[Rfam]
RNA sequence: GUGAACACGAGUUGGCACAAGCGCUGCAUAGUCCCUUUCAGAUCAUUCAUAACGCGCAGCCUUCAACGAUGAAGGCUGCGCCUCCCGAGAGAACGGGACCGGACAAAGGCGUCCCCGUCAGGCAACUGGCGGGACGCC
Numbered sequence: 001g002u003g004a005a006c007a008c009g010a011g012u013u014g015g016c017a018c019a020a021g022c023g024c025u026g027c028a029u030a031g032u033c034c035c036u037u038u039c040a041g042a043u044c045a046u047u048c049a050u051a052a053c054g055c056g057c058a059g060c061c062u063u064c065a066a067c068g069a070u071g072a073a074g075g076c077u078g079c080g081c082c083u084c085c086c087g088a089g090a091g092a093a094c095g096g097g098a099c100c101g102g103a104c105a106a107a108g109g110c111g112u113c114c115c116c117g118u119c120a121g122g123c124a125a126c127u128g129g130c131g132g133g134a135c136g137c138c
Base pairs, nucleotide, nucleotide: 012106013105014104015027016026017025054081055080056079057078058077060075061074063072064071083098084097085096086095087094108138109137110136111135112134113133114132116131117130118129119128120127121126
This 138-nucleotide RNA sequence from Pseudomonas syringae group genomosp. 3 belongs to the Rfam family "Pseudomonas sRNA P11".
The organism belongs to Pseudomonas syringae pv. tomato, within Bacteria.
From the family's description: This small RNA (sRNA) was computationally identified in the genome of the opportunistic pathogen Pseudomonas aeruginosa and its expression verified by northern blot analysis. P11 is located between a putative threonine protein kinase and putative nitrate reductase and appears to be conserved in several Pseudomonas species.
The base pairs follow the family's consensus structure, which was predicted with RNAalifold.